[Rfam]
RNA sequence: GGAGGCUUGGCCCUCCGGAGCCGCUCUUCGAGGGGAGGCUUCAAACCGCCACAUGCUGCGUGACCGGUGACGGGAUCGUGGUGAGCGAUGUGGAAAAGGCGUCGUGAGAGGCGUUAGGU
Numbered sequence: 001g002g003a004g005g006c007u008u009g010g011c012c013c014u015c016c017g018g019a020g021c022c023g024c025u026c027u028u029c030g031a032g033g034g035g036a037g038g039c040u041u042c043a044a045a046c047c048g049c050c051a052c053a054u055g056c057u058g059c060g061u062g063a064c065c066g067g068u069g070a071c072g073g074g075a076u077c078g079u080g081g082u083g084a085g086c087g088a089u090g091u092g093g094a095a096a097a098g099g100c101g102u103c104g105u106g107a108g109a110g111g112c113g114u115u116a117g118g119u
Base pairs, nucleotide, nucleotide: 001016002015003014004013005012017042018041019040020039021038022037024035025034026033027032047118049093050092051091052090053089054088055082056081058079059078060077064073065072098115099114100113101112102111103110